Rfam assigns this 130-nucleotide RNA from Chrysochloris asiatica to the family "Small nucleolar RNA SNORA31". ACA31 (SNORA31) belongs to the H/ACA class of snoRNAs which are thought to guide the sites of modification of uridines to pseudouridines. ACA31 is predicted to guide the pseudouridylation of U3713 in 28S rRNA and U218 in 18S rRNA. This family includes the mouse homologue snoMBI-161. Its family is annotated with RNA processing and nucleolus in the Gene Ontology. For this family Rfam cites "RNomics: an experimental approach that identifies 201 candidates for novel, small, non-messenger RNAs in mouse" (Huttenhofer et al., EMBO J, 2001). Lineage of the source: Eukaryota > Metazoa > Bilateria > Tetrapoda > Chrysochloris.
[Rfam]
RNA sequence: AUGCAUCUAUUUGACAGGGCUGCUGCAGUUACUGUCUGUUUCUAAGGUUUACACUACAGAUGCAAGAAAAAGUUCCUCAUGCUUUCUGUCUGCUUUGGUGGCAGCUAAGAUUGAAGAGGGGAAUAUGAGA
Numbered sequence: 001a002u003g004c005a006u007c008u009a010u011u012u013g014a015c016a017g018g019g020c021u022g023c024u025g026c027a028g029u030u031a032c033u034g035u036c037u038g039u040u041u042c043u044a045a046g047g048u049u050u051a052c053a054c055u056a057c058a059g060a061u062g063c064a065a066g067a068a069a070a071a072g073u074u075c076c077u078c079a080u081g082c083u084u085u086c087u088g089u090c091u092g093c094u095u096u097g098g099u100g101g102c103a104g105c106u107a108a109g110a111u112u113g114a115a116g117a118g119g120g121g122a123a124u125a126u127g128a129g130a
Base pairs, nucleotide, nucleotide: 002064003063004062005061006060007059008058012053013052016050017049018048020046025039026038027037028036074122075121076120077119078118082113085110086109087108090104091103092102093101094100

It is annotated as an H/ACA-box small nucleolar RNA.